[Rfam]
Nucleotides: 070
Base pairs, nucleotide, nucleotide: 010026011025012024013023016061017060018059019058020057021056034051035050036049037048038047039046
Number, partner (000 for none) and nucleotide at each position: 001000c002000c003000u004000c005000u006000g007000a008000c009000u010026g011025g012024a013023g014000a015000u016061g017060g018059c019058a020057u021056u022000c023013c024012u025011c026010c027000a028000u029000g030000a031000a032000c033000c034051g035050c036049c037048g038047c039046a040000a041000a042000u043000u044000g045000g046039u047038g048037c049036g050035g051034c052000u053000g054000a055000u056021g057020a058019u059018g060017c061016c062000u063000a064000c065000a066000c067000c068000u069000a070000c
Fluoride riboswitch aptamer (crcB RNA motif): a 70-nucleotide sequence from Variovorax sp. Sphag1AA. The family has 289 seed sequences and 2,293 matches in Rfam 15.1. The organism belongs to Variovorax, within Bacteria. It scores 56 bits against the family's covariance model. Gene Ontology terms of the family: positive regulation of gene expression and response to fluoride.